[Rfam]
This 76-nucleotide RNA sequence belongs to the Rfam family "L13-Bacteroidia ribosomal protein leader".
RNA sequence: GGGGAGAGACUUAGAAUCCCCACGGGUGAUGUGUGUUAAUAGUCGUGCGUCUGGCCGCGCCGAUGGUUAGUGAAUC
Numbered sequence: 001g002g003g004g005a006g007a008g009a010c011u012u013a014g015a016a017u018c019c020c021c022a023c024g025g026g027u028g029a030u031g032u033g034u035g036u037u038a039a040u041a042g043u044c045g046u047g048c049g050u051c052u053g054g055c056c057g058c059g060c061c062g063a064u065g066g067u068u069a070g071u072g073a074a075u076c
Base pairs, nucleotide, nucleotide: 001021002020003019004018005017036070037069038068039067040066042064043063044062045061047060048059049058050057
It is one of the family's seed sequences. The family's consensus secondary structure is taken from published work. By type it is a cis-regulatory leader.